[Rfam]
RNA: U11 spliceosomal RNA
RNA sequence: AAAAAUGGGGGGCUUCAGUCAUGAGUGGCACCUGUAGGGCAGCUGGAUUGCUCUACAUGCGGAAUCAACAUUAAGAGAUUUCGGAAGCAUAAUUUUUUGCUAUCUGAGAAGUUGAUCGUAAGUCCUGGUGCCCAU
Numbered sequence: 001a002a003a004a005a006u007g008g009g010g011g012g013c014u015u016c017a018g019u020c021a022u023g024a025g026u027g028g029c030a031c032c033u034g035u036a037g038g039g040c041a042g043c044u045g046g047a048u049u050g051c052u053c054u055a056c057a058u059g060c061g062g063a064a065u066c067a068a069c070a071u072u073a074a075g076a077g078a079u080u081u082c083g084g085a086a087g088c089a090u091a092a093u094u095u096u097u098u099g100c101u102a103u104c105u106g107a108g109a110a111g112u113u114g115a116u117c118g119u120a121a122g123u124c125c126u127g128g129u130g131c132c133c134a135u
Stems, first nucleotide, its partner, number of pairs: 012088005018029004031059001033057010060083007106133001108131001111129003114124003
Dot-bracket structure: ...........(((((.((((....)))).(.((((((((((.....)))))))))).)(((((((..........)))))))))))).................(.(..((((((.....)))..))).).)..